[Rfam]
RNA: mir-19 microRNA precursor family
RNA sequence: CGUGAUGGUGAGUUUUGCAGGAUUGCAUCCAGCUUUUAAUGUAAGUGCUGUGCAAAUCCAUGCAAAACUGGCUGUUACA
Numbered sequence: 001c002g003u004g005a006u007g008g009u010g011a012g013u014u015u016u017g018c019a020g021g022a023u024u025g026c027a028u029c030c031a032g033c034u035u036u037u038a039a040u041g042u043a044a045g046u047g048c049u050g051u052g053c054a055a056a057u058c059c060a061u062g063c064a065a066a067a068c069u070g071g072c073u074g075u076u077a078c079a
Base pairs, nucleotide, nucleotide: 003077004076005075006074007073008072009071011069012068013067014066015065016064017063018062019061020059021058023055024054025053026052027051028050031049032048033047